[Rfam]
RNA sequence: CGGCUACUACCCUAUUGGGAGUAGACCCUAAAAUAAGUUUUAUUGUAGAUUUAAAUUUUGUAUAUAAAAAUAUUUUACUGACAAGGCUACUACCCUAUUGGGAGUAGACCUUAAA
Number, nucleotide and partner (000 for none) at each position: 001c000002g027003g026004c024005u023006a022007c021008u020009a000010c019011c018012c000013u000014a000015u000016u000017g000018g011019g010020a008021g007022u006023a005024g004025a000026c003027c002028c000029u000030a000031a000032a000033a000034u000035a000036a000037g000038u000039u000040u000041u000042a000043u000044u000045g000046u000047a000048g000049a000050u000051u000052u000053a000054a000055a000056u000057u000058u000059u000060g000061u000062a000063u000064a000065u000066a000067a000068a000069a000070a000071u000072a000073u000074u000075u000076u000077a000078c000079u000080g000081a000082c000083a000084a111085g110086g109087c107088u106089a105090c104091u103092a000093c102094c101095c100096u000097a000098u000099u000100g095101g094102g093103a091104g090105u089106a088107g087108a000109c086110c085111u084112u000113a000114a000115a000
Shown here is a 115-nucleotide RNA sequence, a member of the family "pan motif".
A search with the family's covariance model found it, with a score of 38 bits.
The family's consensus secondary structure is taken from published work.
The family's RNA type in Rfam is cis-regulatory element.